[Rfam]
RNA sequence: CAACUAUCCAGAGUGAUUGAGGGACUGGCCCGAUGACAUCCAGCAACCUGCAGGAAGACUGUAAGGUGCUAAUUCCAGCAAAAUGGACUGCCAUUUUGAAAGAUAGGAA
Number, nucleotide and partner (000 for none) at each position: 001c000002a000003a000004c106005u105006a104007u103008c102009c000010a000011g000012a000013g041014u000015g040016a039017u038018u000019g000020a000021g031022g030023g029024a000025c078026u077027g076028g075029c023030c022031c021032g000033a000034u000035g000036a000037c000038a017039u016040c015041c013042a070043g069044c068045a067046a000047c066048c065049u063050g062051c061052a060053g000054g000055a000056a000057g000058a000059c000060u052061g051062u050063a049064a000065g048066g047067u045068g044069c043070u042071a000072a000073u000074u101075c028076c027077a026078g025079c098080a097081a096082a095083a094084u093085g000086g000087a000088c000089u000090g000091c000092c000093a084094u083095u082096u081097u080098g079099a000100a000101a074102g008103a007104u006105a005106g004107g000108a000109a000
A member of the RNA family "SAM riboswitch aptamer (S box leader)" from Sporolactobacillus shoreae, 109 nucleotides long. The match comes from Rfam's covariance-model search (79 bits). The family's consensus secondary structure is taken from published work. Taxonomically the source falls in Sporolactobacillus (Bacteria, Bacillati, Bacillota, Bacilli). Its family is annotated with regulation of gene expression in the Gene Ontology.